[Rfam]
Nucleotides: 066
Stems, first nucleotide, its partner, number of pairs: 005061003011055004016051003022045005
Number, partner (000 for none) and nucleotide at each position: 001000g002000c003000u004000a005061g006060g007059c008000a009000a010000g011055a012054u013053g014052u015000u016051g017050g018049c019000a020000u021000a022045g023044c024043u025042g026041a027000a028000u029000g030000c031000a032000a033000u034000u035000u036000g037000g038000c039000g040000c041026u042025c043024a044023g045022c046000u047000c048000g049018g050017c051016c052014a053013c054012a055011u056000a057000c058000u059007g060006c061005c062000a063000c064000g065000c066000a
Shown here is a 66-nucleotide RNA from Caenorhabditis remanei, a member of the family "mir-72 microRNA precursor family".
It is one of the family's seed sequences.
Its family is annotated with miRNA-mediated post-transcriptional gene silencing and RISC complex in the Gene Ontology.
Clan: mir-31 microRNA precursor family.